[Rfam]
RNA sequence: CGGCGGGACAUCCCUCCCCAACGAGGGACGCCCAUCUGUGAGGAUGGAGACA
Numbered sequence: 001c002g003g004c005g006g007g008a009c010a011u012c013c014c015u016c017c018c019c020a021a022c023g024a025g026g027g028a029c030g031c032c033c034a035u036c037u038g039u040g041a042g043g044a045u046g047g048a049g050a051c052a
Stems, first nucleotide, its partner, number of pairs: 011028006032047006
Rfam assigns this 52-nucleotide RNA from bacterium YEK0313 to the family "serC leader". Rfam links the family to the GO term regulation of gene expression. Pairs were carried over by alignment from the consensus structure. It scores 65 bits against the family's covariance model. Rfam describes the family as follows. This family is a putative regulatory RNA structure that is found upstream of the serC-serA operon in some alpha-proteobacteria. The final stem of the structure overlaps the ribosome binding site of the serC reading frame. For this family Rfam cites "Evidence for a second class of S-adenosylmethionine riboswitches and other regulatory RNA motifs in alpha-proteobacteria" (Corbino et al., Genome Biol, 2005).